[Rfam]
RNA sequence: UUAACUCAAAUUUGUAUAGAGUAUGAACAGCUUCCUUUCGUUUGCCGCUAAGGACGUUGUCCCAACUCCAUACAAAUUUGAGUUA
Dot-bracket structure: .......(((((((((...(((..(.(((....(((...((.....))..)))....))).)..)))...)))))))))......

The family of this 85-nucleotide sequence from Bombyx mori is "mir-2807 microRNA precursor family". A reference for the family is Cai et al. (2010), "Novel microRNAs in silkworm (Bombyx mori)", Funct Integr Genomics. A search with the family's covariance model found it, with a score of 59 bits. The source organism's lineage runs through Eukaryota, Pancrustacea, Glossata, Bombycoidea and Bombyx.